[Rfam]
RNA sequence: CCCAGUCGACAGGGGAGUCCCGGCAUUGCGCGGGGCUGAGAGUGUUGUGAACAGACCCUGACACCUGAUCCGGUUCAUGCCGGCGGAGGAAGUGCGACAUGAUGAUGA
Numbered sequence: 001c002c003c004a005g006u007c008g009a010c011a012g013g014g015g016a017g018u019c020c021c022g023g024c025a026u027u028g029c030g031c032g033g034g035g036c037u038g039a040g041a042g043u044g045u046u047g048u049g050a051a052c053a054g055a056c057c058c059u060g061a062c063a064c065c066u067g068a069u070c071c072g073g074u075u076c077a078u079g080c081c082g083g084c085g086g087a088g089g090a091a092g093u094g095c096g097a098c099a100u101g102a103u104g105a106u107g108a
Stems, first nucleotide, its partner, number of pairs: 006096001009093002011059004017036005043053004064089003070083004
Rfam assigns this 108-nucleotide RNA sequence from Marinobacter persicus to the family "TPP riboswitch aptamer (THI element)".
Lineage of the source: Bacteria > Pseudomonadati > Gammaproteobacteria > Marinobacteraceae > Marinobacter.
Rfam links the family to the GO term thiamine pyrophosphate binding.
Pairs were carried over by alignment from the consensus structure, which is taken from published work.